A member of the RNA family "Lysine riboswitch aptamer" from Gammaproteobacteria bacterium SCGC AG-212-F23, 174 nucleotides long. The base pairs follow the family's consensus structure, which is taken from published work.

RNA sequence: GUGAAGAGAAGAGGAGCGCUCACUUAGAAUGUAAUCGAAGGGUCCCUAGCCCGAGGAUGAUUACAAGAGGAGAUAAGCGCCGAAAUGAUUAAUCUACUUGGAAGAUAAGUCAUUGACCAUAAUGGUUAAAUCCUUAUGGUUGUCACAGAGAAUCUGUGGAGUGCUUCUGUGCAA
Dot-bracket structure: ......(((((....(((((.(.(.....((((((((....................))))))))......).).)))))...(((((((.((((.......)))).)))))))((((((((.((.....)).)))))))).(((((((...)))))))....)))))......
Numbered sequence: 001g002u003g004a005a006g007a008g009a010a011g012a013g014g015a016g017c018g019c020u021c022a023c024u025u026a027g028a029a030u031g032u033a034a035u036c037g038a039a040g041g042g043u044c045c046c047u048a049g050c051c052c053g054a055g056g057a058u059g060a061u062u063a064c065a066a067g068a069g070g071a072g073a074u075a076a077g078c079g080c081c082g083a084a085a086u087g088a089u090u091a092a093u094c095u096a097c098u099u100g101g102a103a104g105a106u107a108a109g110u111c112a113u114u115g116a117c118c119a120u121a122a123u124g125g126u127u128a129a130a131u132c133c134u135u136a137u138g139g140u141u142g143u144c145a146c147a148g149a150g151a152a153u154c155u156g157u158g159g160a161g162u163g164c165u166u167c168u169g170u171g172c173a174a
Stems, first nucleotide, its partner, number of pairs: 007168005016080005022074001024072001030065008084114007092106004115141008124132002143159007